A member of the RNA family "Bacterial RNase P class A" from Polaribacter sp. MED152, 308 nucleotides long. Rfam classes the family as a ribozyme. The match comes from Rfam's covariance-model search (194 bits). NCBI's taxonomy places the organism under Bacteria, Pseudomonadati, Flavobacteriia, Flavobacteriales, Polaribacter.
RNA sequence: UAAGCAGACUUAUCUUAUCGCUUUAAAUAUUUUUAAAGAGGAAAGUCCGGACACCAAAGAGUAUUCAUAGCGGAUAACAUCCGUCCAACGUAAGUUGAGGACAAGUGCAACAGAAAGCAAGUACAGUUAGGCUGUAGUGAAACCAGGUAAACUCUAUGAGGUGCAAUGUCAUGUAUAUUAGAGCUUGAGGGCUACUCGCUCGAUUCUAAAGGGUAGGCAGAUAGAUUUUAAAAGUAAUUUUAAAACUAGAUAAAUGAUAAGAACCAAUUAUAUUGGAACAGAAUUCGGCUUAAGAGUCUGCUUUUUAU
Numbered sequence: 001u002a003a004g005c006a007g008a009c010u011u012a013u014c015u016u017a018u019c020g021c022u023u024u025a026a027a028u029a030u031u032u033u034u035a036a037a038g039a040g041g042a043a044a045g046u047c048c049g050g051a052c053a054c055c056a057a058a059g060a061g062u063a064u065u066c067a068u069a070g071c072g073g074a075u076a077a078c079a080u081c082c083g084u085c086c087a088a089c090g091u092a093a094g095u096u097g098a099g100g101a102c103a104a105g106u107g108c109a110a111c112a113g114a115a116a117g118c119a120a121g122u123a124c125a126g127u128u129a130g131g132c133u134g135u136a137g138u139g140a141a142a143c144c145a146g147g148u149a150a151a152c153u154c155u156a157u158g159a160g161g162u163g164c165a166a167u168g169u170c171a172u173g174u175a176u177a178u179u180a181g182a183g184c185u186u187g188a189g190g191g192c193u194a195c196u197c198g199c200u201c202g203a204u205u206c207u208a209a210a211g212g213g214u215a216g217g218c219a220g221a222u223a224g225a226u227u228u229u230a231a232a233a234g235u236a237a238u239u240u241u242a243a244a245a246c247u248a249g250a251u252a253a254a255u256g257a258u259a260a261g262a263a264c265c266a267a268u269u270a271u272a273u274u275g276g277a278a279c280a281g282a283a284u285u286c287g288g289c290u291u292a293a294g295a296g297u298c299u300g301c302u303u304u305u306u307a308u
Base pairs, nucleotide, nucleotide: 002303003302004301005300006299007298008297009296010295011293013262014261015260016259017258018257019256021038022037023036024035025034026033027032043291044290045289047288048287049286050285051284052163053162054161055160059197060196061195062194065159066158067157068156069155070084071083072082073081074080085099086097087096088095089094100154101153105152106151107148108147122136123135124134125133126132127131167219168218169217170216178209179208180207181206182205189201190200191199192198226245227244228243229242230241231240232239233238